[Rfam]
RNA: Ribosomal protein L20 leader
Organism: Clostridium cavendishii
RNA sequence: UUUGUCAAGUAGAAACAGCCGUUUCUCACCUUACAGCAUUGCUAGUAUGGUCAUGUAUGAUUAUUACAAAAAGAUUUGUGGUAAUAGAGGACGGCGAAAGCCGUCCUUUUAUUAUUUA
Numbered sequence: 001u002u003u004g005u006c007a008a009g010u011a012g013a014a015a016c017a018g019c020c021g022u023u024u025c026u027c028a029c030c031u032u033a034c035a036g037c038a039u040u041g042c043u044a045g046u047a048u049g050g051u052c053a054u055g056u057a058u059g060a061u062u063a064u065u066a067c068a069a070a071a072a073g074a075u076u077u078g079u080g081g082u083a084a085u086a087g088a089g090g091a092c093g094g095c096g097a098a099a100g101c102c103g104u105c106c107u108u109u110u111a112u113u114a115u116u117u118a
Stems, first nucleotide, its partner, number of pairs: 011026006028051003033046002036042002090105006